[Rfam]
This 177-nucleotide sequence from Staphylococcus simulans belongs to the Rfam family "Lysine riboswitch aptamer". About the family: Riboswitches are metabolite binding domains within certain messenger RNAs that serve as precision sensors for their corresponding targets.
RNA sequence: GUUUUUUGAUGAGGCGCAUCAAUCAUCAGUACUUACCACGCCUACUGUCUGUUGCAGUUGGUAAGGAAAGGGUGAGAUGCCGAAAUAAUCAUAAAUGCAGAGUUAUGAUUGUUGGACUUUAAGGUUAAGAGCUAAGGGUCUGUCAUUAUUAUCAAAUAAUGGAGUGCAUCACUUGUA
Numbered sequence: 001g002u003u004u005u006u007u008g009a010u011g012a013g014g015c016g017c018a019u020c021a022a023u024c025a026u027c028a029g030u031a032c033u034u035a036c037c038a039c040g041c042c043u044a045c046u047g048u049c050u051g052u053u054g055c056a057g058u059u060g061g062u063a064a065g066g067a068a069a070g071g072g073u074g075a076g077a078u079g080c081c082g083a084a085a086u087a088a089u090c091a092u093a094a095a096u097g098c099a100g101a102g103u104u105a106u107g108a109u110u111g112u113u114g115g116a117c118u119u120u121a122a123g124g125u126u127a128a129g130a131g132c133u134a135a136g137g138g139u140c141u142g143u144c145a146u147u148a149u150u151a152u153c154a155a156a157u158a159a160u161g162g163a164g165u166g167c168a169u170c171a172c173u174u175g176u177a
Stems, first nucleotide, its partner, number of pairs: 007171005016080005024072001032065007084113011114141007122133002143162007